The record is an 81-nucleotide RNA from Danaus chrysippus, which matches "mir-263 microRNA precursor family" in Rfam. The literature on the family includes a 2009 paper in BMC Genomics by Li et al., "Direct sequencing and expression analysis of a large number of miRNAs in Aedes aegypti and a multi-species survey of novel mosquito miRNAs". Rfam links the family to the GO terms miRNA-mediated post-transcriptional gene silencing and RISC complex. Clan: mir-182 clan.
[Rfam]
RNA sequence: CCAAGCGAUGCCUUGGCACUGGGAGAAUUCACAGGAGUUAGAAAUCACCCGUGAAUUUCCUGGUGCCUUAGCAUUGCUAGG
Numbered sequence: 001c002c003a004a005g006c007g008a009u010g011c012c013u014u015g016g017c018a019c020u021g022g023g024a025g026a027a028u029u030c031a032c033a034g035g036a037g038u039u040a041g042a043a044a045u046c047a048c049c050c051g052u053g054a055a056u057u058u059c060c061u062g063g064u065g066c067c068u069u070a071g072c073a074u075u076g077c078u079a080g081g
Base pairs, nucleotide, nucleotide: 004078005077006076007075008074009073010072015067016066017065018064020062021061022060023058025057026056029054030053031052032051034049